Rfam assigns this 51-nucleotide RNA from Paralteromonas sediminis to the family "L31-Gammaproteobacteria ribosomal protein leader". Pairs were carried over by alignment from the consensus structure, which is taken from published work. The family is grouped with related families in Rfam's "Ribosomal Protein L31 Leader clan". NCBI's taxonomy places the organism under Bacteria, Pseudomonadota, Gammaproteobacteria, Alteromonadaceae, Paralteromonas.

[Rfam]
RNA sequence: UGUAUGGUGGCCUGCUUCGGGCAGGUUAGCGAUGCAGCCUUAAUAUGAGGU
Dot-bracket structure: (((((.((..(((((.....)))))...)).)))))...............